[Rfam]
RNA sequence: GCUGUCCGAAAAUGCUGCCUCUACGUGGCGGACGGCAGGCAACGGAGCGUGUCUCCGGCUAAAGCAUGA
Numbered sequence: 001g002c003u004g005u006c007c008g009a010a011a012a013u014g015c016u017g018c019c020u021c022u023a024c025g026u027g028g029c030g031g032a033c034g035g036c037a038g039g040c041a042a043c044g045g046a047g048c049g050u051g052u053c054u055c056c057g058g059c060u061a062a063a064g065c066a067u068g069a
Stems, first nucleotide, its partner, number of pairs: 001036007017029003043057005
The family of this 69-nucleotide RNA sequence from Faecalibacterium prausnitzii is "HDV ribozyme from F. prausnitzii". The sequence is in the family's curated seed alignment. Lineage of the source: Bacteria > Bacillota > Eubacteriales > Oscillospiraceae > Faecalibacterium prausnitzii. The base pairs follow the family's consensus structure, which is taken from published work. For this family Rfam cites "Widespread occurrence of self-cleaving ribozymes" (Webb et al., Science, 2009).